[Rfam]
RNA sequence: UGCAGAGUAAAUGUUUGUGCGUUAAGUGUCAUGUAAACGGGGAGUUGUCACUGAACGAAAAACUAUAGUUAUAGUUUGCGGUACAAACAUUGCAUCCCGCUGCU
Numbered sequence: 001u002g003c004a005g006a007g008u009a010a011a012u013g014u015u016u017g018u019g020c021g022u023u024a025a026g027u028g029u030c031a032u033g034u035a036a037a038c039g040g041g042g043a044g045u046u047g048u049c050a051c052u053g054a055a056c057g058a059a060a061a062a063c064u065a066u067a068g069u070u071a072u073a074g075u076u077u078g079c080g081g082u083a084c085a086a087a088c089a090u091u092g093c094a095u096c097c098c099g100c101u102g103c104u
Stems, first nucleotide, its partner, number of pairs: 002103004010091010020080003026056002029054003033051002036048001040097003044093001060077006
The family of this 104-nucleotide sequence from Sporomusa silvacetica is "THF (Tetrahydrofolate) riboswitch aptamer". NCBI's taxonomy places the organism under Bacteria, Bacillati, Bacillota, Selenomonadales, Sporomusa silvacetica. Rfam describes the family as follows. Tetrahydrofolate (THF) riboswitch was first reported for Ames et al. as an RNA motif in 5' untranslated (5'-UTR)regions of folate transport and biosynthesis genes in Firmicutes genomes. For this family Rfam cites "The structure of a tetrahydrofolate-sensing riboswitch reveals two ligand binding sites in a single aptamer" (Trausch et al., Structure, 2011).